[Rfam]
The family of this 192-nucleotide RNA from Chlamydomonas reinhardtii is "U2 spliceosomal RNA". Rfam's curators put it in the seed alignment. U2 is a small nuclear RNA (snRNA) component of the spliceosome (involved in pre-mRNA splicing). Complementary binding between U2 snRNA (in an area lying towards the 5' end but 3' to hairpin I) and the branchpoint sequence (BPS) of the intron results the bulging out of an unpaired adenosine, on the BPS, which initiates a nucleophilic attack at the intronic 5' splice site, thus starting the first of two transesterification reactions that mediate splicing. The organism belongs to Chlamydomonas, within Eukaryota. The family's consensus secondary structure is taken from published work.

RNA sequence: AUACCUUUCUCGGCCUUUUGGCUCAGAUCAUGUGUAGUAUCUGUUCUUAUAAGCUUAAUCGCUUAUAUGGUUCUCAUUGAGAACCUGCGAUUAACUUUAAUAUUUUAGGGGGUCAAGGCAAUGGGGGCGCUUGCGUCCCGCCGCGACAGCUUGGCAGGAGGCUUACACUACCUCUCUUGCCGAGCACCCCAG
Numbered sequence: 001a002u003a004c005c006u007u008u009c010u011c012g013g014c015c016u017u018u019u020g021g022c023u024c025a026g027a028u029c030a031u032g033u034g035u036a037g038u039a040u041c042u043g044u045u046c047u048u049a050u051a052a053g054c055u056u057a058a059u060c061g062c063u064u065a066u067a068u069g070g071u072u073c074u075c076a077u078u079g080a081g082a083a084c085c086u087g088c089g090a091u092u093a094a095c096u097u098u099a100a101u102a103u104u105u106u107a108g109g110g111g112g113u114c115a116a117g118g119c120a121a122u123g124g125g126g127g128c129g130c131u132u133g134c135g136u137c138c139c140g141c142c143g144c145g146a147c148a149g150c151u152u153g154g155c156a157g158g159a160g161g162c163u164u165a166c167a168c169u170a171c172c173u174c175u176c177u178u179g180c181c182g183a184g185c186a187c188c189c190c191a192g
Stems, first nucleotide, its partner, number of pairs: 008027003012023004048067006069085007113146002117142003126137004149185006156178006